Rfam assigns this 118-nucleotide sequence from Clostridium thailandense to the family "Group II catalytic intron D1-D4-2". On this family, see Chu et al., EMBO J 2001: "Control of branch-site choice by a group II intron".
RNA sequence: GGAUGUGGGCCCUCCAGAAUCGGCAUACAGGUGCAGGUUUUAAACUACCAUAUUGGGUGCUGUAACCAAAAGUUGUGGUGAUGAGCGCGUAUGGAAAAGGCUGCGAUAGCAGUCAAGU
Numbered sequence: 001g002g003a004u005g006u007g008g009g010c011c012c013u014c015c016a017g018a019a020u021c022g023g024c025a026u027a028c029a030g031g032u033g034c035a036g037g038u039u040u041u042a043a044a045c046u047a048c049c050a051u052a053u054u055g056g057g058u059g060c061u062g063u064a065a066c067c068a069a070a071a072g073u074u075g076u077g078g079u080g081a082u083g084a085g086c087g088c089g090u091a092u093g094g095a096a097a098a099g100g101c102u103g104c105g106a107u108a109g110c111a112g113u114c115a116a117g118u
Base pairs, nucleotide, nucleotide: 001015002014003013005011016041017040018039019038020037021036023034024033025032026031046117048094049093050092051091052090055088056082059079060078061077063075064074065073066072099114100113101112102111103110104109
Description
Pairs were carried over by alignment from the consensus structure.